[Rfam]
RNA sequence: AGGCCCAGAGAGAGAAGCAGGGUCUGAUCUGCAGCCUUUGUGGCAGCUGCUGAUCAGCCCUUGCCUCUCUCUCCAGGCCUU
Numbered sequence: 001a002g003g004c005c006c007a008g009a010g011a012g013a014g015a016a017g018c019a020g021g022g023u024c025u026g027a028u029c030u031g032c033a034g035c036c037u038u039u040g041u042g043g044c045a046g047c048u049g050c051u052g053a054u055c056a057g058c059c060c061u062u063g064c065c066u067c068u069c070u071c072u073c074c075a076g077g078c079c080u081u
Base pairs, nucleotide, nucleotide: 008073009072010071011070012069013068014067015066017064018063019062020061022059024057025056026055027054028053029052032049033048034047035046
RNA: mir-574 microRNA precursor family